The record is an 81-nucleotide sequence from Oceanobacillus halophilus, which matches "Glycine riboswitch aptamer" in Rfam. Gene Ontology term of the family: glycine biosynthetic process. Taxonomically the source falls in Oceanobacillus (Bacteria, Bacillati, Caryophanales, Bacillaceae). This family represents the bacterial glycine riboswitch.

[Rfam]
RNA sequence: UUCUCUGGAGAGCGCUAUAUGCCACCCAAGGAGUAGACCUUCUAUCAUUAGGUAAAACUCUCAGGUUAAAAGGACAGAGAA
Numbered sequence: 001u002u003c004u005c006u007g008g009a010g011a012g013c014g015c016u017a018u019a020u021g022c023c024a025c026c027c028a029a030g031g032a033g034u035a036g037a038c039c040u041u042c043u044a045u046c047a048u049u050a051g052g053u054a055a056a057a058c059u060c061u062c063a064g065g066u067u068a069a070a071a072g073g074a075c076a077g078a079g080a081a
Stems, first nucleotide, its partner, number of pairs: 001081007014022002024066003028061001031060003037053004